[Rfam]
RNA sequence: GAGUGAUUGUGCCCAUGUGCUGAAAGCACAUAUUGAAAUGGCACAAUCGACUUGCCGCCGAACGAAUGUGAGGGGGCGAUACCAUAA
Numbered sequence: 001g002a003g004u005g006a007u008u009g010u011g012c013c014c015a016u017g018u019g020c021u022g023a024a025a026g027c028a029c030a031u032a033u034u035g036a037a038a039u040g041g042c043a044c045a046a047u048c049g050a051c052u053u054g055c056c057g058c059c060g061a062a063c064g065a066a067u068g069u070g071a072g073g074g075g076g077c078g079a080u081a082c083c084a085u086a087a
Stems, first nucleotide, its partner, number of pairs: 008045006015031006054077003058073002062069002
The family of this 87-nucleotide sequence is "GA-cis RNA". The family's consensus secondary structure is taken from published work.